RNA sequence: CCCCUUUGCUAAGUAGUAGCGCCGAAGGUGAUGGUUAUUUGAAGUCACCUGCGCACUCCUACUUAACAUUACGG
Numbered sequence: 001c002c003c004c005u006u007u008g009c010u011a012a013g014u015a016g017u018a019g020c021g022c023c024g025a026a027g028g029u030g031a032u033g034g035u036u037a038u039u040u041g042a043a044g045u046c047a048c049c050u051g052c053g054c055a056c057u058c059c060u061a062c063u064u065a066a067c068a069u070u071a072c073g074g
Stems, first nucleotide, its partner, number of pairs: 001074002007068001010065007018057002024052001026050005
Dot-bracket structure: ((....(..(((((((.((....(.(((((...............))))).)...)).)))))))..)....))
The family of this 74-nucleotide RNA from Bemisia tabaci is "mir-252 microRNA precursor family". Gene Ontology terms of the family: RISC complex and miRNA-mediated post-transcriptional gene silencing. The family is grouped with related families in Rfam's "mir-252 microRNA precursor family". A reference for the family is Ruby et al. (2006), "Large-scale sequencing reveals 21U-RNAs and additional microRNAs and endogenous siRNAs in C. elegans", Cell. Taxonomically the source falls in Bemisia (Eukaryota, Pancrustacea, Insecta, Eumetabola).